The family of this 50-nucleotide RNA sequence from Aliiroseovarius sediminilitoris is "SAM/SAH riboswitch aptamer".
RNA sequence: AUCCCGCCACAACGGCUUCCUGACGUGGUGUGGGCUUAACCAUCGGAGCA
Numbered sequence: 001a002u003c004c005c006g007c008c009a010c011a012a013c014g015g016c017u018u019c020c021u022g023a024c025g026u027g028g029u030g031u032g033g034g035c036u037u038a039a040c041c042a043u044c045g046g047a048g049c050a
Stems, first nucleotide, its partner, number of pairs: 004033002006029005013022002015049003019046002

Gene Ontology terms of the family: regulation of gene expression and S-adenosylmethionine metabolic process. For this family Rfam cites "The structure of the SAM/SAH-binding riboswitch" (Weickhmann et al., Nucleic Acids Res, 2019). A search with the family's covariance model found it, with a score of 52 bits. Taxonomically the source falls in Aliiroseovarius (Bacteria, Pseudomonadota, Alphaproteobacteria, Rhodobacterales).